[Rfam]
RNA sequence: UGCCAAGAACCAUGAGGAAAUUGUCUCCCCUUAUGGAUCUGGCCAAUUCAGCAACGAAGGAG
Numbered sequence: 001u002g003c004c005a006a007g008a009a010c011c012a013u014g015a016g017g018a019a020a021u022u023g024u025c026u027c028c029c030c031u032u033a034u035g036g037a038u039c040u041g042g043c044c045a046a047u048u049c050a051g052c053a054a055c056g057a058a059g060g061a062g
Stems, first nucleotide, its partner, number of pairs: 003042003007039002010036008
The family of this 62-nucleotide RNA sequence is "L20-Deltaproteobacteria ribosomal protein leader". Pairs were carried over by alignment from the consensus structure, which is taken from published work. Rfam classes the family as a cis-regulatory leader. It is one of the family's seed sequences. The literature on the family includes a 2020 paper in BMC Microbiol by Eckert and Weinberg, "Discovery of 20 novel ribosomal leader candidates in bacteria and archaea".